[Rfam]
RNA sequence: UAGAGCAAGGCAGAUAAGGGAAGUCGGCAAAAUGGAUCCGUAACUUCGGGAUAAGGAUUGGCUCUGGGGGCCGGGCGCUUCGACCCGAUUGCUGCUCGCUUCGGUCGCGCUCCGCUCUUUUUUUUAAGGGGCGCUGCGCGCCCUUUGCUCGCUGCUCUCGGCGUCCUGCGCGAUGAACGGCCAACUCAGAACUGGAGCGGACAAGGGGAAUCCGACUGUUUAAUUAAAACCAAGCAUUGCGAUGGCCCCCACGGGUGUUGACGCAAUGUGAUUUCUGCCCAGUGCUCUGAAUGUCAACGUGGUGAAAUUCAACCAAGCGCGGGUAAACGGCGGGAGUAACUAUGACUCUCUUAAGGUAGCCAAAUGCCUCGUCAUCUAAUUAGUGACGCGCAUGAAUGGAUUAACGAGAUUCCCACUGUCCCUAUCUGCCAUCUAGCGAACCCACAGCCAAGGGAACGGGCUUGGCA
Numbered sequence: 001u002a003g004a005g006c007a008a009g010g011c012a013g014a015u016a017a018g019g020g021a022a023g024u025c026g027g028c029a030a031a032a033u034g035g036a037u038c039c040g041u042a043a044c045u046u047c048g049g050g051a052u053a054a055g056g057a058u059u060g061g062c063u064c065u066g067g068g069g070g071c072c073g074g075g076c077g078c079u080u081c082g083a084c085c086c087g088a089u090u091g092c093u094g095c096u097c098g099c100u101u102c103g104g105u106c107g108c109g110c111u112c113c114g115c116u117c118u119u120u121u122u123u124u125u126a127a128g129g130g131g132c133g134c135u136g137c138g139c140g141c142c143c144u145u146u147g148c149u150c151g152c153u154g155c156u157c158u159c160g161g162c163g164u165c166c167u168g169c170g171c172g173a174u175g176a177a178c179g180g181c182c183a184a185c186u187c188a189g190a191a192c193u194g195g196a197g198c199g200g201a202c203a204a205g206g207g208g209a210a211u212c213c214g215a216c217u218g219u220u221u222a223a224u225u226a227a228a229a230c231c232a233a234g235c236a237u238u239g240c241g242a243u244g245g246c247c248c249c250c251a252c253g254g255g256u257g258u259u260g261a262c263g264c265a266a267u268g269u270g271a272u273u274u275c276u277g278c279c280c281a282g283u284g285c286u287c288u289g290a291a292u293g294u295c296a297a298c299g300u301g302g303u304g305a306a307a308u309u310c311a312a313c314c315a316a317g318c319g320c321g322g323g324u325a326a327a328c329g330g331c332g333g334g335a336g337u338a339a340c341u342a343u344g345a346c347u348c349u350c351u352u353a354a355g356g357u358a359g360c361c362a363a364a365u366g367c368c369u370c371g372u373c374a375u376c377u378a379a380u381u382a383g384u385g386a387c388g389c390g391c392a393u394g395a396a397u398g399g400a401u402u403a404a405c406g407a408g409a410u411u412c413c414c415a416c417u418g419u420c421c422c423u424a425u426c427u428g429c430c431a432u433c434u435a436g437c438g439a440a441c442c443c444a445c446a447g448c449c450a451a452g453g454g455a456a457c458g459g460g461c462u463u464g465g466c467a
Stems, first nucleotide, its partner, number of pairs: 001435004009430008018421003035059005044049001060193002063190006069182005075171004082165003085161003091155002098149001100147001103143002106140005113133008194198001206414007213406002218230002234269008245256004273400003277331003282328002284324004289320001292319003300311003332350006351355001371387005448465005
A member of the RNA family "Eukaryotic large subunit ribosomal RNA" from Babesia bovis, 467 nucleotides of a longer RNA. Rfam links the family to the GO terms structural constituent of ribosome and ribosome. Pairs were carried over by alignment from the consensus structure, which is taken from published work. A reference for the family is Yusupov et al. (2001), "Crystal structure of the ribosome at 5.5 A resolution", Science. The sequence is in the family's curated seed alignment. The organism belongs to Babesia, within Eukaryota.